[Rfam]
RNA sequence: GGGUGUCACCGCAGAGUGCGGAAGGCAGGUUGAUGCGAUGGUCGGGCCGCCACG
Numbered sequence: 001g002g003g004u005g006u007c008a009c010c011g012c013a014g015a016g017u018g019c020g021g022a023a024g025g026c027a028g029g030u031u032g033a034u035g036c037g038a039u040g041g042u043c044g045g046g047c048c049g050c051c052a053c054g
Stems, first nucleotide, its partner, number of pairs: 005026003009021003036054002039052004
RNA: nhaA-I RNA
Organism: Tahibacter aquaticus